[Rfam]
Description:
This 45-nucleotide RNA belongs to the Rfam family "Plastid-ycf3 group II-D1 intron". The family has 385 seed sequences and 1,488 matches in Rfam 15.1. Rfam describes the family as follows. Plastid rpl16 is a non-coding RNA (ncRNA) recognised in plastids. Pairs were carried over by alignment from the consensus structure, which was predicted with LocARNA.
RNA sequence: UCCCUUCUGUCGUGUAUUCCCGAUUAAUGCAGCCCGCUAUGCUUC
Numbered sequence: 001u002c003c004c005u006u007c008u009g010u011c012g013u014g015u016a017u018u019c020c021c022g023a024u025u026a027a028u029g030c031a032g033c034c035c036g037c038u039a040u041g042c043u044u045c
Stems, first nucleotide, its partner, number of pairs: 009024004031043003
Dot-bracket structure: ........((((........))))......(((.......)))..